The family of this 99-nucleotide RNA sequence from Trifolium medium is "Small nucleolar RNA Z157/R69/R10".
The source organism's lineage runs through Eukaryota, Gunneridae, fabids, Fabales and Trifolium.
The base pairs follow the family's consensus structure, which was predicted with PFOLD.
The family has 10 seed sequences and 836 matches in Rfam 15.1.
RNA sequence: UAUUGUGCUGUGACAAUACAAAAUGUGGACUAGAGUUUUUGAUCUGGGAAUCUUCACCCAGAAGUUGAUUAUGAAACCCUUGGCUGUCUGAGCACAAAU
Numbered sequence: 001u002a003u004u005g006u007g008c009u010g011u012g013a014c015a016a017u018a019c020a021a022a023a024u025g026u027g028g029a030c031u032a033g034a035g036u037u038u039u040u041g042a043u044c045u046g047g048g049a050a051u052c053u054u055c056a057c058c059c060a061g062a063a064g065u066u067g068a069u070u071a072u073g074a075a076a077c078c079c080u081u082g083g084c085u086g087u088c089u090g091a092g093c094a095c096a097a098a099u
Stems, first nucleotide, its partner, number of pairs: 003097006038068002043063001044061005